[Rfam]
RNA sequence: UUCUUCUCAUGAGCUCCUCUCUGUCAAUCCAGUGGCAGUGUAUGGAUUCGCACGAGAAGUAGAGUGAUUCACAGUUUAACAGGUGUUUCCACUGCAUUGGGACAUGCCCAUGUCUGAUGUGAGACAUUC
Numbered sequence: 001u002u003c004u005u006c007u008c009a010u011g012a013g014c015u016c017c018u019c020u021c022u023g024u025c026a027a028u029c030c031a032g033u034g035g036c037a038g039u040g041u042a043u044g045g046a047u048u049c050g051c052a053c054g055a056g057a058a059g060u061a062g063a064g065u066g067a068u069u070c071a072c073a074g075u076u077u078a079a080c081a082g083g084u085g086u087u088u089c090c091a092c093u094g095c096a097u098u099g100g101g102a103c104a105u106g107c108c109c110a111u112g113u114c115u116g117a118u119g120u121g122a123g124a125c126a127u128u129c
Stems, first nucleotide, its partner, number of pairs: 003059006013051002015046003021038005069122005089100003
Dot-bracket structure: ..((((((....(((((...(((((........))))).....)))...))..)))))).........(((((...............(((......))).................))))).......

Background:
A member of the RNA family "Small nucleolar RNA SNORA75", 129 nucleotides long. Rfam's curators write: U23 belongs to the H/ACA class of snoRNAs. snoRNAs bind a number of proteins (including dyskerin, Gar1p and Nop10p in the case of the H/ACA class) to form snoRNP complexes. This class are thought to guide the sites of modification of uridines to pseudouridines by forming direct base pairing interactions with substrate RNAs. Targets include ribosomal and spliceosomal RNAs as well as the Trypanosoma spliced leader RNA (SL RNA) as possibly other, still unknown cellular RNAs. Rfam classes the family as an H/ACA-box small nucleolar RNA. Pairs were carried over by alignment from the consensus structure, which was predicted with PFOLD.